[Rfam]
RNA sequence: GAAUUCAAAACGCCGAAUUCCUUAGUGGAAGCGGAGGAACCAACUUCUGGGGUUAAUUCUGUUCCGGACAGAAGGGAUGCUUACUUUCUUGCCAUCCUACCCGUCAGCUAACUUCGCAGGCGAAAGCAAGAGGUCUU
Numbered sequence: 001g002a003a004u005u006c007a008a009a010a011c012g013c014c015g016a017a018u019u020c021c022u023u024a025g026u027g028g029a030a031g032c033g034g035a036g037g038a039a040c041c042a043a044c045u046u047c048u049g050g051g052g053u054u055a056a057u058u059c060u061g062u063u064c065c066g067g068a069c070a071g072a073a074g075g076g077a078u079g080c081u082u083a084c085u086u087u088c089u090u091g092c093c094a095u096c097c098u099a100c101c102c103g104u105c106a107g108c109u110a111a112c113u114u115c116g117c118a119g120g121c122g123a124a125a126g127c128a129a130g131a132g133g134u135c136u137u
Stems, first nucleotide, its partner, number of pairs: 011122004018030003031117006041049002050102003058072004075097004
Description:
A member of the RNA family "c-di-AMP riboswitch aptamer (ydaO/yuaA leader)" from Allolucifera butyrica, 137 nucleotides long. The base pairs follow the family's consensus structure. A search with the family's covariance model found it, with a score of 85 bits. The organism belongs to Allolucifera, within Bacteria.